[Rfam]
RNA: Small nucleolar RNA SNORD112
Organism: Tupaia belangeri
RNA sequence: UGGACCAAUGAUGAGCAAGCCUUUGUGAACAAAGGACCACGUUUAAUCCAGUUCUGCAGGAAAUACUGAGAUCCAUU
Numbered sequence: 001u002g003g004a005c006c007a008a009u010g011a012u013g014a015g016c017a018a019g020c021c022u023u024u025g026u027g028a029a030c031a032a033a034g035g036a037c038c039a040c041g042u043u044u045a046a047u048c049c050a051g052u053u054c055u056g057c058a059g060g061a062a063a064u065a066c067u068g069a070g071a072u073c074c075a076u077u
Stems, first nucleotide, its partner, number of pairs: 001075004006070001
Dot-bracket structure: ((((.(...............................................................).))))..